[Rfam]
The family of this 111-nucleotide RNA from Fischerella thermalis is "Guanidine-I riboswitch aptamer". From the family's description: This family represents a conserved RNA structure found upstream of the ykkC and yxkD genes in Bacillus subtilis and related genes in other bacteria. The function of this family is unclear although it has been suggested that it may function to switch on efflux pumps and detoxification systems in response to harmful environmental molecules. Taxonomically the source falls in Fischerella thermalis (Bacteria, Cyanobacteriota, Nostocales, Fischerella).
RNA sequence: AUAUAUAGCUUCUAGGGUUCCGGUUUAAUUCAGGGAAGUUAAACGACUGGUCCAAGAGAAGCAACCAGUUUCACAAAAACUGGCACACGGCGGGAAAAAAGCCCGGGAGGU
Numbered sequence: 001a002u003a004u005a006u007a008g009c010u011u012c013u014a015g016g017g018u019u020c021c022g023g024u025u026u027a028a029u030u031c032a033g034g035g036a037a038g039u040u041a042a043a044c045g046a047c048u049g050g051u052c053c054a055a056g057a058g059a060a061g062c063a064a065c066c067a068g069u070u071u072c073a074c075a076a077a078a079a080c081u082g083g084c085a086c087a088c089g090g091c092g093g094g095a096a097a098a099a100a101g102c103c104c105g106g107g108a109g110g111u
Stems, first nucleotide, its partner, number of pairs: 008062005015053002020050002022047001023044008065083007086106001088109001092104003
Its family is annotated with regulation of gene expression in the Gene Ontology.